[Rfam]
RNA sequence: ACCGGGCUUGGUAGCGCUUGCCUGUAACCCAAGUGGGGGUACAAAAGUGGUAGGACUGUGGCUUAGCCCAGCUCGGUUGGGUCCUUUUGUGCGAUUUCUGGCCUGCCCGUUCCAAGUUUAGAGUUGGUUCAUGUGACUUGAGCGAAGGCUUGGGUUGCUUGGACACUAGACUAAGGGGAACUGCGUUAGGCUGGCUUCACAGAGCUGCGAGAACCCUUGGCUCUUGACAGUGGAAGGAUAACAGGCUUAGGCACAUCGGGCUCACUACACUGGCUGGUCUGACUCAAAUGAACUACCACUUUU
Numbered sequence: 001a002c003c004g005g006g007c008u009u010g011g012u013a014g015c016g017c018u019u020g021c022c023u024g025u026a027a028c029c030c031a032a033g034u035g036g037g038g039g040u041a042c043a044a045a046a047g048u049g050g051u052a053g054g055a056c057u058g059u060g061g062c063u064u065a066g067c068c069c070a071g072c073u074c075g076g077u078u079g080g081g082u083c084c085u086u087u088u089g090u091g092c093g094a095u096u097u098c099u100g101g102c103c104u105g106c107c108c109g110u111u112c113c114a115a116g117u118u119u120a121g122a123g124u125u126g127g128u129u130c131a132u133g134u135g136a137c138u139u140g141a142g143c144g145a146a147g148g149c150u151u152g153g154g155u156u157g158c159u160u161g162g163a164c165a166c167u168a169g170a171c172u173a174a175g176g177g178g179a180a181c182u183g184c185g186u187u188a189g190g191c192u193g194g195c196u197u198c199a200c201a202g203a204g205c206u207g208c209g210a211g212a213a214c215c216c217u218u219g220g221c222u223c224u225u226g227a228c229a230g231u232g233g234a235a236g237g238a239u240a241a242c243a244g245g246c247u248u249a250g251g252c253a254c255a256u257c258g259g260g261c262u263c264a265c266u267a268c269a270c271u272g273g274c275u276g277g278u279c280u281g282a283c284u285c286a287a288a289u290g291a292a293c294u295a296c297c298a299c300u301u302u303u
Stems, first nucleotide, its partner, number of pairs: 001040003004023004010017001028037003043303011056290001059286002061283001063281001066278001068277006075271003079263006087255001089254004100247006107237002110235005116228003120224005127164005133158011172219006182211001184209003191202003